mir-184 microRNA precursor family: an 85-nucleotide RNA from Merluccius polli. The base pairs follow the family's consensus structure, which was predicted with PFOLD. A search with the family's covariance model found it, with a score of 68 bits. Taxonomically the source falls in Merluccius (Eukaryota, Vertebrata, Teleostei, Ctenosquamata). Its family is annotated with RISC complex and gene silencing by miRNA in the Gene Ontology.

RNA sequence: UCAAACACAUGUGCUUAUCACUUUUCCAGCCCAGCUAUCCAUCAUGUGUUUGUUGGACGGAGAACUGAUAAGGGAAUGUGUCUGA
Numbered sequence: 001u002c003a004a005a006c007a008c009a010u011g012u013g014c015u016u017a018u019c020a021c022u023u024u025u026c027c028a029g030c031c032c033a034g035c036u037a038u039c040c041a042u043c044a045u046g047u048g049u050u051u052g053u054u055g056g057a058c059g060g061a062g063a064a065c066u067g068a069u070a071a072g073g074g075a076a077u078g079u080g081u082c083u084g085a
Stems, first nucleotide, its partner, number of pairs: 012074001014072007022064006030056002